Shown here is a 53-nucleotide RNA from Maritimibacter sp. HL-12, a member of the family "ffh sRNA". Lineage of the source: Bacteria > Pseudomonadati > Pseudomonadota > Roseobacteraceae > Maritimibacter. Rfam classes the family as a small RNA. A search with the family's covariance model found it, with a score of 58 bits.
RNA sequence: CAGGCCCGGGAUCGCCCCCCGUCAGCGCGGAUGCGCCCACGGGGGCGCUCGCC
Numbered sequence: 001c002a003g004g005c006c007c008g009g010g011a012u013c014g015c016c017c018c019c020c021g022u023c024a025g026c027g028c029g030g031a032u033g034c035g036c037c038c039a040c041g042g043g044g045g046c047g048c049u050c051g052c053c
Base pairs, nucleotide, nucleotide: 016045017044018043019042020041021040022039025036026035027034028033